This 197-nucleotide RNA sequence from Bacillus taeanensis belongs to the Rfam family "Group II catalytic intron D1-D4-5". About the family: Group II introns are found in rRNA, tRNA and mRNA of organelles in fungi, plants and protists, and also in mRNA in bacteria. Gene Ontology term of the family: Group II intron splicing. It scores 114 bits against the family's covariance model.
RNA sequence: UUGAAGGAUUAUAUCGAAGAGUCAAAUGAAGGAGUAACGUCCUAAAGGGCUCUCUCUGCGUCGAAUAGCACUUGAUUUAGUAAGAAUGAUAGUGUUAUAAGCUCGGCAAAGAAGGCGUAAGAAUUUACCGUAAUAGGUCAAGCUGACGAAAGCCUACCCGCGGGGGUGGUGUAAAUCAUGACGCUUGAGUUGAAUGA
Numbered sequence: 001u002u003g004a005a006g007g008a009u010u011a012u013a014u015c016g017a018a019g020a021g022u023c024a025a026a027u028g029a030a031g032g033a034g035u036a037a038c039g040u041c042c043u044a045a046a047g048g049g050c051u052c053u054c055u056c057u058g059c060g061u062c063g064a065a066u067a068g069c070a071c072u073u074g075a076u077u078u079a080g081u082a083a084g085a086a087u088g089a090u091a092g093u094g095u096u097a098u099a100a101g102c103u104c105g106g107c108a109a110a111g112a113a114g115g116c117g118u119a120a121g122a123a124u125u126u127a128c129c130g131u132a133a134u135a136g137g138u139c140a141a142g143c144u145g146a147c148g149a150a151a152g153c154c155u156a157c158c159c160g161c162g163g164g165g166g167u168g169g170u171g172u173a174a175a176u177c178a179u180g181a182c183g184c185u186u187g188a189g190u191u192g193a194a195u196g197a
Stems, first nucleotide, its partner, number of pairs: 018053006031043002034040001054189003061106004065098008075090003114185005123176006129148003136144002152170003156167004